Rfam assigns this 77-nucleotide RNA from Robinsoniella sp. RHS to the family "c-di-GMP-I riboswitch aptamer". Clan: c-di-GMP_I riboswitch clan. About the family: GEMM was predicted in a large-scale screen for bacterial structured RNA regulatory elements.

[Rfam]
RNA sequence: AUAUGACAAUAGCAAAACAGGCGAAAGCCUGUGACGCAAAGCUAUCAGGGUCUGUAAAAUGACAGCCAGCUGCCGAC
Numbered sequence: 001a002u003a004u005g006a007c008a009a010u011a012g013c014a015a016a017a018c019a020g021g022c023g024a025a026a027g028c029c030u031g032u033g034a035c036g037c038a039a040a041g042c043u044a045u046c047a048g049g050g051u052c053u054g055u056a057a058a059a060u061g062a063c064a065g066c067c068a069g070c071u072g073c074c075g076a077c
Stems, first nucleotide, its partner, number of pairs: 012037002017032006040071004048067002050063003